This 116-nucleotide RNA sequence from Pseudochrobactrum saccharolyticum belongs to the Rfam family "Alphaproteobacterial ar14". The family's RNA type in Rfam is small RNA. Rfam 15.1 lists 784 matches to the family in 332 species. Its family is annotated with biological process involved in symbiotic interaction in the Gene Ontology. Rfam's curators write: Smr14C2 was renamed NfeR1 (Nodule Formation Efficiency RNA) highly expressed in salt stress and during the symbiotic interaction on legume roots.
RNA sequence: GCCUAUCGGGUUCGUUCUCCUCCUCCCAAUUGGACCCGAUGACGGAAUGCGGUACUCCUCCUCCCAACCGCAUCCAUAAUCAGGCCGCGCAUCUCCUCCCCCGCGCGGCCUUUUUC
Numbered sequence: 001g002c003c004u005a006u007c008g009g010g011u012u013c014g015u016u017c018u019c020c021u022c023c024u025c026c027c028a029a030u031u032g033g034a035c036c037c038g039a040u041g042a043c044g045g046a047a048u049g050c051g052g053u054a055c056u057c058c059u060c061c062u063c064c065c066a067a068c069c070g071c072a073u074c075c076a077u078a079a080u081c082a083g084g085c086c087g088c089g090c091a092u093c094u095c096c097u098c099c100c101c102c103g104c105g106c107g108g109c110c111u112u113u114u115u116c
Stems, first nucleotide, its partner, number of pairs: 007038008016029001044075002047073007082111006088103002